[Rfam]
RNA sequence: CCGCCCGUCGCUGCCCGGGACUGAGUUGCUUCGAGAAUUGCGAGGACUGACGCUGCGGGGCCUCACGGCUCUACGGUGUUGGAAAUCGCUGUAAUCGCAGUGGCUUGAACCGGGCAAAAGUCGUAACAAGGUGCGAUUAGGAGAACCUGACCGCGGAUCAUUG
Numbered sequence: 001c002c003g004c005c006c007g008u009c010g011c012u013g014c015c016c017g018g019g020a021c022u023g024a025g026u027u028g029c030u031u032c033g034a035g036a037a038u039u040g041c042g043a044g045g046a047c048u049g050a051c052g053c054u055g056c057g058g059g060g061c062c063u064c065a066c067g068g069c070u071c072u073a074c075g076g077u078g079u080u081g082g083a084a085a086u087c088g089c090u091g092u093a094a095u096c097g098c099a100g101u102g103g104c105u106u107g108a109a110c111c112g113g114g115c116a117a118a119a120g121u122c123g124u125a126a127c128a129a130g131g132u133g134c135g136a137u138u139a140g141g142a143g144a145a146c147c148u149g150a151c152c153g154c155g156g157a158u159c160a161u162u163g
Base pairs, nucleotide, nucleotide: 001130003127006123007122009120012116013115014114015113016112017111018110021107023106024105025104026103027102028101029100030099032097033096034095037092038091040089041088042087043086047082048081049080050079051078052077053076054075055074057072059070060069061068062067132155133154134153135152137150138149139148140147141146
Description:
This 163-nucleotide part of an RNA from Strigamia maritima belongs to the Rfam family "Eukaryotic small subunit ribosomal RNA". For this family Rfam cites "Crystal structure of the ribosome at 5.5 A resolution" (Yusupov et al., Science, 2001). It scores 1599 bits against the family's covariance model. Its family is annotated with ribosome and structural constituent of ribosome in the Gene Ontology. Rfam 15.1 lists 75,755 matches to the family in 2,556 species.